Record summary: Shown here is an 84-nucleotide sequence from Ferrimonas balearica, a member of the family "c-di-GMP-I-GGC riboswitch aptamer". The family is grouped with related families in Rfam's "c-di-GMP_I riboswitch clan".
RNA sequence: GACGAAAAAGGCAAACCAGGUGAAAGCCUGGGACGCAAAGCCUCCGGUCUAAGGUGAACGCUAUCGAUAGCGGGGCUGCCGAGU
Numbered sequence: 001g002a003c004g005a006a007a008a009a010g011g012c013a014a015a016c017c018a019g020g021u022g023a024a025a026g027c028c029u030g031g032g033a034c035g036c037a038a039a040g041c042c043u044c045c046g047g048u049c050u051a052a053g054g055u056g057a058a059c060g061c062u063a064u065c066g067a068u069a070g071c072g073g074g075g076c077u078g079c080c081g082a083g084u
Base pairs, nucleotide, nucleotide: 001084003081004080011036012035016031017030018029019028020027021026034070039077040076041075042074044073045072046071047068048067049066